This 87-nucleotide RNA from Frankineae bacterium MT45 belongs to the Rfam family "ZMP/ZTP riboswitch aptamer (pfl RNA motif)".

[Rfam]
RNA sequence: UCGGCGGGUCGUAACUGGCGCAUUUUCUAAGGUGGGUCGACCACCGGGGAGCGACCUGAGCAUGAGCCGCGCGCCUGGGUGCCCUCC
Numbered sequence: 001u002c003g004g005c006g007g008g009u010c011g012u013a014a015c016u017g018g019c020g021c022a023u024u025u026u027c028u029a030a031g032g033u034g035g036g037u038c039g040a041c042c043a044c045c046g047g048g049g050a051g052c053g054a055c056c057u058g059a060g061c062a063u064g065a066g067c068c069g070c071g072c073g074c075c076u077g078g079g080u081g082c083c084c085u086c087c
Base pairs, nucleotide, nucleotide: 005058006057007056008055009054010053011052012051015048016047017075018074019073020072021071032044033043034042035041064082066080067079068078
Dot-bracket structure: ....((((((((..(([[[[[..........((((.....))))..))..)))))))).....(.(((..]]]]]..))).).....